[Rfam]
RNA sequence: UCAGGUGAAGUCCAAUAGGGAGGGCAUCGCAGGUGACUGACAAGCACUGCGGUCCAACCUAUUGGUCAAUACCUGGU
Numbered sequence: 001u002c003a004g005g006u007g008a009a010g011u012c013c014a015a016u017a018g019g020g021a022g023g024g025c026a027u028c029g030c031a032g033g034u035g036a037c038u039g040a041c042a043a044g045c046a047c048u049g050c051g052g053u054c055c056a057a058c059c060u061a062u063u064g065g066u067c068a069a070u071a072c073c074u075g076g077u
Base pairs, nucleotide, nucleotide: 001076002075003074004073005072006071007070010067012065013064014063015062016061017060018059019058026053027052028051029050030049031048032047033045034044
RNA: mir-2005 microRNA precursor family
Organism: Acanthaster planci